The family of this 136-nucleotide sequence from Brassica oleracea is "MIR168 microRNA precursor family". Rfam 15.1 lists 518 matches to the family in 218 species.

[Rfam]
RNA sequence: GUUACGGCGGCCUCUGAUUCGCUUGGUGCAGGUCGGGAACUGAUUGGCUGACACUGCCACGUGGCUUUUCAUGGUUGGCUUGUGAGCAGGGAUCGGAUCCCGCCUUGUAUCAAGUGAAUCCGAGUCCGACGUGAAA
Numbered sequence: 001g002u003u004a005c006g007g008c009g010g011c012c013u014c015u016g017a018u019u020c021g022c023u024u025g026g027u028g029c030a031g032g033u034c035g036g037g038a039a040c041u042g043a044u045u046g047g048c049u050g051a052c053a054c055u056g057c058c059a060c061g062u063g064g065c066u067u068u069u070c071a072u073g074g075u076u077g078g079c080u081u082g083u084g085a086g087c088a089g090g091g092a093u094c095g096g097a098u099c100c101c102g103c104c105u106u107g108u109a110u111c112a113a114g115u116g117a118a119u120c121c122g123a124g125u126c127c128g129a130c131g132u133g134a135a136a
Stems, first nucleotide, its partner, number of pairs: 013123002017119004023113010034102005040096006
The source organism's lineage runs through Eukaryota, Streptophytina, Euphyllophyta, malvids and Brassica oleracea.
The literature on the family includes a 2002 paper in Genes Dev by Reinhart et al., "MicroRNAs in plants".
A search with the family's covariance model found it, with a score of 106 bits.